The family of this 368-nucleotide sequence from Brevibacterium aurantiacum is "Bacterial RNase P class A". Gene Ontology terms of the family: tRNA processing, dimeric ribonuclease P complex and ribonuclease P activity. The family is grouped with related families in Rfam's "RNaseP clan". It is annotated as a ribozyme.
RNA sequence: ACAGGUCACCAGACGGUCGCGGCUCUCUCACGAGGGCUGAGGAACGUCCGGGCUCCGCAGAGCAGGGAUGGUGGGUAACACCCACCCGGGGCAACCCGCGGGCCAGUGCAACAGAAAGCAGACCGCCCAGUUUCGACUGGGUAAGGGUGAAACGGUGGUGUAAGAGACCACCAGGGUGUCGGGUGACCGGCGCCGCUGGGUAAACCCCAUCCGGAGCAAGAUCAGACAGACGACGUUCGAGGCUGCUCGCCGAGUCGUCGGGUGGAUUGCUUGAGGCCGGUGGCAACAUCGGUCCCAGAUAGAUGACCGUCCGUCGAGAAGGGUAACCGACUCGAUGACAGAACCCGGCGUAUCGGUGGCCUGUCCUC
Numbered sequence: 001a002c003a004g005g006u007c008a009c010c011a012g013a014c015g016g017u018c019g020c021g022g023c024u025c026u027c028u029c030a031c032g033a034g035g036g037c038u039g040a041g042g043a044a045c046g047u048c049c050g051g052g053c054u055c056c057g058c059a060g061a062g063c064a065g066g067g068a069u070g071g072u073g074g075g076u077a078a079c080a081c082c083c084a085c086c087c088g089g090g091g092c093a094a095c096c097c098g099c100g101g102g103c104c105a106g107u108g109c110a111a112c113a114g115a116a117a118g119c120a121g122a123c124c125g126c127c128c129a130g131u132u133u134c135g136a137c138u139g140g141g142u143a144a145g146g147g148u149g150a151a152a153c154g155g156u157g158g159u160g161u162a163a164g165a166g167a168c169c170a171c172c173a174g175g176g177u178g179u180c181g182g183g184u185g186a187c188c189g190g191c192g193c194c195g196c197u198g199g200g201u202a203a204a205c206c207c208c209a210u211c212c213g214g215a216g217c218a219a220g221a222u223c224a225g226a227c228a229g230a231c232g233a234c235g236u237u238c239g240a241g242g243c244u245g246c247u248c249g250c251c252g253a254g255u256c257g258u259c260g261g262g263u264g265g266a267u268u269g270c271u272u273g274a275g276g277c278c279g280g281u282g283g284c285a286a287c288a289u290c291g292g293u294c295c296c297a298g299a300u301a302g303a304u305g306a307c308c309g310u311c312c313g314u315c316g317a318g319a320a321g322g323g324u325a326a327c328c329g330a331c332u333c334g335a336u337g338a339c340a341g342a343a344c345c346c347g348g349c350g351u352a353u354c355g356g357u358g359g360c361c362u363g364u365c366c367u368c
Base pairs, nucleotide, nucleotide: 001364002363003362004361005360006359007358008357009356010355011353012311013310014309015308016307017306018305020039021038022037023036024035025034026033027032044351045350046349048348049347050346051345052344053216054215055214056213060248061247062246063245066212067211068210069209070208071085072084073083074082075081086100087098088097089096090095101207102206106205107204108201109200123146124145125142126141127140128139129138130137131136154172155171156170157169158168159167174196175194176193177192178191179190180189181188182187220268221267222266223265229259230258231257232256233255234254241251242250243249275294276293277292278291279290280289281288282287